Rfam assigns this 166-nucleotide RNA sequence from Chrysochloris asiatica to the family "Interferon gamma 5' UTR regulatory element".
Lineage of the source: Eukaryota > Gnathostomata > Teleostomi > Chrysochlorinae > Chrysochloris.
Gene Ontology term of the family: positive regulation of translation.
A search with the family's covariance model found it, with a score of 97 bits.
This family represents a pseudoknot containing stem-loop structure found in the 5' UTR of interferon (IFN) gamma mRNA. This structure is thought to be involved in translational regulation and the pseudoknot has been found to activate PKR which is known to be a translational inhibitor. Mutations in the pseudoknot structure have been found to reduce PKR activation and increase the translation of IFN-gamma.
By type it is a cis-regulatory element.

RNA sequence: CAUUGUUCUGAUCAUUGGCUGAUCUACUAUUAGGAAAGAAAGAUCAGCCAAGUACUUUGCCUUGAUUAAUUUAAUACAGGGGCCACUAAUUUCAGCAACUUUGAUCUAACUCUUUGAAACAAUGAAUUAUACAAGUUAUCUGUUAGCUUUUCAGCUUUGUAUCAUU
Numbered sequence: 001c002a003u004u005g006u007u008c009u010g011a012u013c014a015u016u017g018g019c020u021g022a023u024c025u026a027c028u029a030u031u032a033g034g035a036a037a038g039a040a041a042g043a044u045c046a047g048c049c050a051a052g053u054a055c056u057u058u059g060c061c062u063u064g065a066u067u068a069a070u071u072u073a074a075u076a077c078a079g080g081g082g083c084c085a086c087u088a089a090u091u092u093c094a095g096c097a098a099c100u101u102u103g104a105u106c107u108a109a110c111u112c113u114u115u116g117a118a119a120c121a122a123u124g125a126a127u128u129a130u131a132c133a134a135g136u137u138a139u140c141u142g143u144u145a146g147c148u149u150u151u152c153a154g155c156u157u158u159g160u161a162u163c164a165u166u
Base pairs, nucleotide, nucleotide: 009068010067011066012065013064014063015117016116017115018114021112022111026105028103029102032100033099041092042091043090044089046087047086052083053082056080057079058078059077118166119165122162123161124160129139130138131137145156146155147154148153